[Rfam]
RNA sequence: GUCUUGUCAAUGAUGUUUUCAAUACAAAUGUCUGAACUUAUGAAUUUCAGUGAUUCUUUCUUUGUGACUGAGACGAGAC
Numbered sequence: 001g002u003c004u005u006g007u008c009a010a011u012g013a014u015g016u017u018u019u020c021a022a023u024a025c026a027a028a029u030g031u032c033u034g035a036a037c038u039u040a041u042g043a044a045u046u047u048c049a050g051u052g053a054u055u056c057u058u059u060c061u062u063u064g065u066g067a068c069u070g071a072g073a074c075g076a077g078a079c
Stems, first nucleotide, its partner, number of pairs: 002078007
The family of this 79-nucleotide RNA from Salmo salar is "Small nucleolar RNA SNORD72". It scores 57 bits against the family's covariance model. Rfam 15.1 lists 726 matches to the family in 499 species. Gene Ontology terms of the family: nucleolus and RNA processing. Rfam describes the family as follows. snoRNA HBII-240 belongs to the CD family of snoRNAs.